[Rfam]
RNA: MIR4371 microRNA precursor family
RNA sequence: CUAUUAAGUGAUGGUGUGAGAGACGGAGUGUCACGUCAUCACACCCAAUCAUUGACAUGUCAGUACCACGUCAUUGAGAGUGAUGAUAUAACAAUGAGGUGUCUAUAACAAAACGUGAUUACGUGACAUUCUGUCUAUUACGUCAUUACUUAAGGGAA
Numbered sequence: 001c002u003a004u005u006a007a008g009u010g011a012u013g014g015u016g017u018g019a020g021a022g023a024c025g026g027a028g029u030g031u032c033a034c035g036u037c038a039u040c041a042c043a044c045c046c047a048a049u050c051a052u053u054g055a056c057a058u059g060u061c062a063g064u065a066c067c068a069c070g071u072c073a074u075u076g077a078g079a080g081u082g083a084u085g086a087u088a089u090a091a092c093a094a095u096g097a098g099g100u101g102u103c104u105a106u107a108a109c110a111a112a113a114c115g116u117g118a119u120u121a122c123g124u125g126a127c128a129u130u131c132u133g134u135c136u137a138u139u140a141c142g143u144c145a146u147u148a149c150u151u152a153a154g155g156g157a158a
Stems, first nucleotide, its partner, number of pairs: 001156002004153016021136016038119005049108001051106002054103005070087005